Annotation
Rfam assigns this 371-nucleotide part of an RNA from Corynebacterium riegelii to the family "Bacterial large subunit ribosomal RNA".
RNA sequence: CGGGUGAACUGUGGUUAAGGAACUCGGCAAAAUGCCCCCGUAACUUCGGGAGAAGGGGGACCCAAACCGGUAGCUAACACAUGCGGUUAGUGUGCUGGUGUGGGUCGCAGAGAAGAGAGGGGAGCGACUGUUUAUCAAAAACACAGGUCCGUGCGAAGACGGUUAAGUUGAUGUAUACGGACUGACGCCUGCCCGGUGCUGGAAGGUUAAGAGGACCUGUUAGACCCUUUUGGGUCGAAGCGGAGAAUUUAAGCCCCAGUAAACGGCGGUGGUAACUAUAACCAUCCUAAGGUAGCGAAAUUCCUUGUCGGGUAAGUUCCGACCUGCACGAAUGGCGUAACGACUCCCCUGCUGUCUCAACCACAGGCCCG
Number, nucleotide and partner (000 for none) at each position: 001c371002g370003g369004g368005u000006g000007a000008a000009c366010u365011g364012u363013g362014g361015u360016u359017a000018a357019g356020g355021a000022a000023c000024u000025c000026g000027g000028c000029a000030a000031a000032a000033u000034g000035c059036c058037c057038c056039c055040g000041u000042a000043a000044c049045u000046u000047c000048g000049g044050g000051a000052g000053a000054a000055g039056g038057g037058g036059g035060a105061c104062c103063c102064a101065a000066a099067c098068c097069g096070g095071u094072a000073g000074c000075u000076a000077a000078c000079a000080c000081a000082u000083g000084c000085g000086g000087u000088u000089a000090g000091u000092g000093u000094g071095c070096u069097g068098g067099u066100g000101u064102g063103g062104g061105u060106c110107g000108c000109a000110g106111a000112g000113a000114a000115g000116a000117g000118a350119g349120g348121g347122g346123a345124g344125c342126g341127a000128c000129u143130g142131u141132u000133u000134a000135u000136c000137a000138a000139a000140a000141a131142c130143a129144c000145a000146g183147g182148u181149c180150c179151g178152u177153g176154c173155g000156a000157a000158g169159a168160c167161g000162g000163u000164u000165a000166a000167g160168u159169u158170g000171a000172u000173g154174u000175a000176u153177a152178c151179g150180g149181a148182c147183u146184g000185a000186c337187g336188c335189c334190u000191g267192c266193c265194c000195g000196g264197u263198g260199c259200u258201g257202g256203a000204a000205g255206g254207u253208u000209a000210a000211g249212a248213g000214g000215a000216c000217c243218u242219g241220u240221u000222a000223g236224a235225c234226c233227c232228u000229u000230u000231u000232g227233g226234g225235u224236c223237g000238a000239a000240g220241c219242g218243g217244a000245g000246a000247a000248u212249u211250u000251a000252a000253g207254c206255c205256c202257c201258a200259g199260u198261a000262a000263a197264c196265g193266g192267c191268g286269g285270u284271g283272g282273u281274a000275a000276c000277u000278a000279u000280a000281a273282c272283c271284a270285u269286c268287c291288u000289a000290a000291g287292g000293u000294a000295g000296c000297g324298a000299a000300a000301u000302u000303c000304c000305u000306u000307g323308u322309c321310g320311g319312g318313u000314a000315a000316g000317u000318u312319c311320c310321g309322a308323c307324c297325u000326g000327c000328a000329c000330g000331a000332a000333u000334g189335g188336c187337g186338u000339a000340a000341c126342g125343a000344c124345u123346c122347c121348c120349c119350u118351g000352c000353u000354g000355u020356c019357u018358c000359a016360a015361c014362c013363a012364c011365a010366g009367g000368c004369c003370c002371g001
Taxonomically the source falls in Corynebacterium (Bacteria, Bacillati, Actinomycetota, Corynebacteriaceae).